The family of this 107-nucleotide RNA sequence from Populus alba is "MIR6450 microRNA precursor family".

RNA sequence: AAGACCCAAGGAUGAUGGGUCCUGUGUCUGGACCCAUUAUGAUUGGGUCCUACCUCUGGACCCAAUCAAAAUGGGUCCUGCUUCAGGACCCAAGGUUCUUAGCUCUU
Numbered sequence: 001a002a003g004a005c006c007c008a009a010g011g012a013u014g015a016u017g018g019g020u021c022c023u024g025u026g027u028c029u030g031g032a033c034c035c036a037u038u039a040u041g042a043u044u045g046g047g048u049c050c051u052a053c054c055u056c057u058g059g060a061c062c063c064a065a066u067c068a069a070a071a072u073g074g075g076u077c078c079u080g081c082u083u084c085a086g087g088a089c090c091c092a093a094g095g096u097u098c099u100u101a102g103c104u105c106u107u
Stems, first nucleotide, its partner, number of pairs: 001107004006102001008100002013095001016092009030078008043065008

The base pairs follow the family's consensus structure, which was predicted with RNAalifold.
Taxonomically the source falls in Populus (Eukaryota, Euphyllophyta, Mesangiospermae, Pentapetalae).
A search with the family's covariance model found it, with a score of 71 bits.
The family has 2 seed sequences and 53 matches in Rfam 15.1.
Gene Ontology terms of the family: RISC complex and miRNA-mediated post-transcriptional gene silencing.